[Rfam]
RNA sequence: CUGCAUCUUCUGAUAGACCUUGAACAGCUUGCUGUUGUUCUUUUGGUUUGCACGAGGAAGCAAAAGCAAAUAAUCCCUGCACUUUCUGUUUGUCUUUGUGGUAGCCCAGAUUGAAUUGGGAGAAUACAUUA
Numbered sequence: 001c002u003g004c005a006u007c008u009u010c011u012g013a014u015a016g017a018c019c020u021u022g023a024a025c026a027g028c029u030u031g032c033u034g035u036u037g038u039u040c041u042u043u044u045g046g047u048u049u050g051c052a053c054g055a056g057g058a059a060g061c062a063a064a065a066g067c068a069a070a071u072a073a074u075c076c077c078u079g080c081a082c083u084u085u086c087u088g089u090u091u092g093u094c095u096u097u098g099u100g101g102u103a104g105c106c107c108a109g110a111u112u113g114a115a116u117u118g119g120g121a122g123a124a125u126a127c128a129u130u131a
Stems, first nucleotide, its partner, number of pairs: 002062003006058003011052002014050006022040007074123002076120004082113001085110004090104005

Small nucleolar RNA SNORA31: a 131-nucleotide sequence from Dipodomys ordii. The source organism's lineage runs through Eukaryota, Euteleostomi, Tetrapoda, Boreoeutheria and Dipodomys. The literature on the family includes a 2001 paper in EMBO J by Huttenhofer et al., "RNomics: an experimental approach that identifies 201 candidates for novel, small, non-messenger RNAs in mouse". A search with the family's covariance model found it, with a score of 118 bits. Its family is annotated with RNA processing and nucleolus in the Gene Ontology. ACA31 (SNORA31) belongs to the H/ACA class of snoRNAs which are thought to guide the sites of modification of uridines to pseudouridines. ACA31 is predicted to guide the pseudouridylation of U3713 in 28S rRNA and U218 in 18S rRNA. This family includes the mouse homologue snoMBI-161.